[Rfam]
RNA sequence: GGCCUUCCCUCGACGCGUCCCACCCCCUAUAUUGAGUUUGUCCGGGUUCGCCCGAACUAUGGGGAUAAACGCGCACGUAAUAAGCGGACUGGACCCGGGUGCGAUUCCCGGCGGCUCCACCAAAUCUCUCCCGAGUUAUCGCGGGACUGCAUGGGGCCGAUCAGCAUCGACAGACGUGUAAAGGUGUAUGCUUUCUCUCGGCGUGGCUCACCGUUUCGGGCCAUUUUUCUAAAUGCGAACGAUAACUUCGCUGAAGAGUUCGCUAUCGCCGCGUAAUGCGGUUCUAGUGAAUUCGCCUCUUAAGUCCUAGGGGUUCAGAUCCCUAGGCGGGGCCCGGAGGGAGCCUGCCAACAGAAUCCCUCCACU
Dot-bracket structure: .......................................((.((((....)))).))...(((((.....((((((........((..(((...(((((.......)))))(((((((..................................)))))))...........))).)).......))))..))..)))))[[[..(((.((.]]]....)).)))..........................................................................................................[[[[..((((((.]]]]...........))))))...
RNA: Alphaproteobacteria transfer-messenger RNA
Organism: Caulobacter sp. Root655